Rfam assigns this 113-nucleotide sequence from Pipistrellus kuhlii to the family "mir-9261 microRNA precursor family". Taxonomically the source falls in Pipistrellus (Eukaryota, Eumetazoa, Gnathostomata, Eutheria).
RNA sequence: AACAAUUUGUCCCGCGUCCCGAGGCGUUUUAAAAAAGUCCAAAAGAUUUAAAAGAUUCUUUCCAAAAAUCGGGACUUUUUUAAAACGCCACGGGACGCGGGACAAAUUGUUAA
Numbered sequence: 001a002a003c004a005a006u007u008u009g010u011c012c013c014g015c016g017u018c019c020c021g022a023g024g025c026g027u028u029u030u031a032a033a034a035a036a037g038u039c040c041a042a043a044a045g046a047u048u049u050a051a052a053a054g055a056u057u058c059u060u061u062c063c064a065a066a067a068a069u070c071g072g073g074a075c076u077u078u079u080u081u082a083a084a085a086c087g088c089c090a091c092g093g094g095a096c097g098c099g100g101g102a103c104a105a106a107u108u109g110u111u112a113a
Base pairs, nucleotide, nucleotide: 001111002110003109004108005107006106007105008104009103010102011101012100013099014098015097016096017095018094019093020092021091023089024088025087026086027085028084029083030082031081032080033079034078035077036076037075038074039073040072